[Rfam]
RNA sequence: ACUAAUUCUCAGGGCGGGGCGAAAUUCCCCACCGGCGGUAUUAGUUUUUAGCUUAAGCCCGCGAGCGCUUUUCUUUUCUAGAAAAGGUCAGCAGAUUUGGUGAGAUUCCAAAGCCGACGGUUAUAGUCCGGAUGAAAGAGUAUUAAA
Numbered sequence: 001a002c003u004a005a006u007u008c009u010c011a012g013g014g015c016g017g018g019g020c021g022a023a024a025u026u027c028c029c030c031a032c033c034g035g036c037g038g039u040a041u042u043a044g045u046u047u048u049u050a051g052c053u054u055a056a057g058c059c060c061g062c063g064a065g066c067g068c069u070u071u072u073c074u075u076u077u078c079u080a081g082a083a084a085a086g087g088u089c090a091g092c093a094g095a096u097u098u099g100g101u102g103a104g105a106u107u108c109c110a111a112a113g114c115c116g117a118c119g120g121u122u123a124u125a126g127u128c129c130g131g132a133u134g135a136a137a138g139a140g141u142a143u144u145a146a147a
Stems, first nucleotide, its partner, number of pairs: 003145004008140003017029003031127002033116002035062004057114002065092002096112005118130003
The family of this 147-nucleotide RNA from Paraphotobacterium marinum is "FMN riboswitch aptamer (RFN element)". Rfam's curators write: The RFN element is a highly conserved domain that is found frequently in the 5'-untranslated regions of prokaryotic mRNAs that encode for flavin mononucleotide (FMN) biosynthesis and transport proteins. This element is a metabolite-dependent riboswitch that directly binds FMN in the absence of proteins. In Bacillus subtilis, the riboswitch most likely controls gene expression by causing premature transcription termination within the 5' untranslated region of the ribDEAHT operon and precluding access to the ribosome-binding site of ypaA mRNA.The FMN riboswitch structure, reported in present an FMN-bound six-stem junction, adopts a butterfly-like scaffold, stapled together by opposingly directed but nearly identically folded peripheral domains. The family's consensus secondary structure is taken from published work. The family has 146 seed sequences and 6,230 matches in Rfam 15.1.